[Rfam]
RNA: Histone 3' UTR stem-loop
Organism: Sphaeramia orbicularis
RNA sequence: CAAAAGGCUCUUUUCAGAGCCACACACUAACUUCAAAACUGCAGCU
Numbered sequence: 001c002a003a004a005a006g007g008c009u010c011u012u013u014u015c016a017g018a019g020c021c022a023c024a025c026a027c028u029a030a031c032u033u034c035a036a037a038a039c040u041g042c043a044g045c046u
Base pairs, nucleotide, nucleotide: 006021007020008019009018010017011016